RNA sequence: ACCGGCAUGCAAGUGGGCCGAAGGUCGACUCCUGUGCCGCAGGGGUUCUCAGCCCGGACCCCGGAAAGCUGUGA
Numbered sequence: 001a002c003c004g005g006c007a008u009g010c011a012a013g014u015g016g017g018c019c020g021a022a023g024g025u026c027g028a029c030u031c032c033u034g035u036g037c038c039g040c041a042g043g044g045g046u047u048c049u050c051a052g053c054c055c056g057g058a059c060c061c062c063g064g065a066a067a068g069c070u071g072u073g074a
Stems, first nucleotide, its partner, number of pairs: 003039006042062006
RNA: hya RNA
Organism: Mycolicibacterium thermoresistibile